[Rfam]
RNA sequence: CCCUUAUCUUUAUUUUAGGUUUCAAGUUGGUCCCUUAUCUUUAUUUUAGGUUUCAAGUUGGUCCCUUCCGUCAAUUUUUUAACUAUUUCCGUUAAAUUUGGACAUGUGGCACACUUGAACAUGUGACACGUGUCCAGAAUUAACGGUAACAGUAAAAAAAUUGACGGAAGGGACCAACUUGAAACCUAAAAAAAAGAUAAGGGACCAACUUGAAACUUUUAAAAGAUAAGGGA
Numbered sequence: 001c002c003c004u005u006a007u008c009u010u011u012a013u014u015u016u017a018g019g020u021u022u023c024a025a026g027u028u029g030g031u032c033c034c035u036u037a038u039c040u041u042u043a044u045u046u047u048a049g050g051u052u053u054c055a056a057g058u059u060g061g062u063c064c065c066u067u068c069c070g071u072c073a074a075u076u077u078u079u080u081a082a083c084u085a086u087u088u089c090c091g092u093u094a095a096a097u098u099u100g101g102a103c104a105u106g107u108g109g110c111a112c113a114c115u116u117g118a119a120c121a122u123g124u125g126a127c128a129c130g131u132g133u134c135c136a137g138a139a140u141u142a143a144c145g146g147u148a149a150c151a152g153u154a155a156a157a158a159a160a161u162u163g164a165c166g167g168a169a170g171g172g173a174c175c176a177a178c179u180u181g182a183a184a185c186c187u188a189a190a191a192a193a194a195a196g197a198u199a200a201g202g203g204a205c206c207a208a209c210u211u212g213a214a215a216c217u218u219u220u221a222a223a224a225g226a227u228a229a230g231g232g233a
Base pairs, nucleotide, nucleotide: 002231003230004229005228006227007226008225025210026209027208029206030205031204033202034201035200036199037198038197039196040195041194042193044191045190047188048187049186

The family of this 233-nucleotide sequence from Trifolium subterraneum is "MIR2655 microRNA precursor family". The source organism's lineage runs through Eukaryota, Viridiplantae, Spermatophyta, fabids and Trifolium. Rfam 15.1 lists 892 matches to the family in 5 species. Rfam links the family to the GO terms RISC complex and miRNA-mediated post-transcriptional gene silencing. Pairs were carried over by alignment from the consensus structure, which was predicted with RNAalifold.